[Rfam]
RNA: Small nucleolar RNA SNORA64/SNORA10 family
Nucleotides: 134
Stems, first nucleotide, its partner, number of pairs: 004064002007061002011058005019043002022040005075124004082118001089114003095110001098107002
Number, partner (000 for none) and nucleotide at each position: 001000g002000g003000c004064c005063u006000c007061u008060c009000a010000g011058c012057u013056c014055u015054g016000c017000u018000u019043a020042a021000u022040c023039a024038c025037a026036c027000a028000g029000g030000u031000c032000a033000c034000c035000u036026g037025u038024g039023u040022g041000c042020u043019u044000g045000a046000u047000g048000u049000g050000u051000u052000u053000u054015c055014a056013g057012a058011g059000a060008g061007g062000c063005a064004g065000a066000g067000g068000a069000a070000g071000a072000c073000u074000c075124u076123c077122c078121u079000a080000u081000u082118g083000c084000a085000u086000g087000a088000c089114a090113g091112a092000c093000c094000c095110a096000a097000c098107c099106c100000c101000a102000g103000a104000a105000u106099g107098g108000c109000c110095u111000c112091u113090c114089u115000g116000u117000u118082c119000c120000u121078a122077g123076g124075g125000a126000g127000c128000a129000u130000c131000a132000g133000c134000u